Ascomycota telomerase RNA: a 212-nucleotide part of an RNA from Colletotrichum liriopes. Pairs were carried over by alignment from the consensus structure.
[Rfam]
RNA sequence: UCCCCUUCAGUUCUCCGAUUCUCAUUUUCCGCAAGGAAUGUCUACCGCAGACCUCUCAGCAAGGGCUGACAACCCACGAUACGUCGCAUCCGAGCCUGUAUCAGGACCUCGUGCUUGCCGCGGUUGGAGCUAUCGUGGUCCAUGGUUGUCUAUACCAGACAAUGCAGUCCAGCUGAGAGAAUGAGUCUCGGAACUUAACCCUAAGUAUCCCU
Numbered sequence: 001u002c003c004c005c006u007u008c009a010g011u012u013c014u015c016c017g018a019u020u021c022u023c024a025u026u027u028u029c030c031g032c033a034a035g036g037a038a039u040g041u042c043u044a045c046c047g048c049a050g051a052c053c054u055c056u057c058a059g060c061a062a063g064g065g066c067u068g069a070c071a072a073c074c075c076a077c078g079a080u081a082c083g084u085c086g087c088a089u090c091c092g093a094g095c096c097u098g099u100a101u102c103a104g105g106a107c108c109u110c111g112u113g114c115u116u117g118c119c120g121c122g123g124u125u126g127g128a129g130c131u132a133u134c135g136u137g138g139u140c141c142a143u144g145g146u147u148g149u150c151u152a153u154a155c156c157a158g159a160c161a162a163u164g165c166a167g168u169c170c171a172g173c174u175g176a177g178a179g180a181a182u183g184a185g186u187c188u189c190g191g192a193a194c195u196u197a198a199c200c201c202u203a204a205g206u207a208u209c210c211c212u
Stems, first nucleotide, its partner, number of pairs: 009195003015191004
For this family Rfam cites "The common ancestral core of vertebrate and fungal telomerase RNAs" (Qi et al., Nucleic Acids Res, 2013). Rfam 15.1 lists 475 matches to the family in 456 species. The organism belongs to Colletotrichum spaethianum species complex, within Eukaryota. Rfam links the family to the GO terms telomerase activity, telomere maintenance via telomerase and telomerase catalytic core complex. Rfam classes the family as a non-coding RNA gene.